[Rfam]
RNA sequence: GAGAUCUUAAUUUAAUGGUAAAAUACGAGACUUUUAAUCUUUGUUAUAUGGGUUCGAUUCCCAUAGAUCUUA
Number, nucleotide and partner (000 for none) at each position: 001g071002a070003g069004a068005u067006c066007u065008u000009a000010a024011u023012u022013u021014a000015a000016u000017g000018g000019u000020a000021a013022a012023a011024u010025a000026c000027g041028a040029g039030a038031c000032u000033u000034u000035u000036a000037a000038u030039c029040u028041u027042u000043g000044u000045u000046a000047u000048a064049u063050g062051g061052g060053u000054u000055c000056g000057a000058u000059u000060c052061c051062c050063a049064u048065a007066g006067a005068u004069c003070u002071u001072a000
Background: The family of this 72-nucleotide sequence from Lachnellula hyalina is "tRNA". About the family: Transfer RNA (tRNA) molecules are approximately 80 nucleotides in length. It scores 63 bits against the family's covariance model. Rfam classes the family as a transfer RNA. Rfam links the family to the GO term triplet codon-amino acid adaptor activity.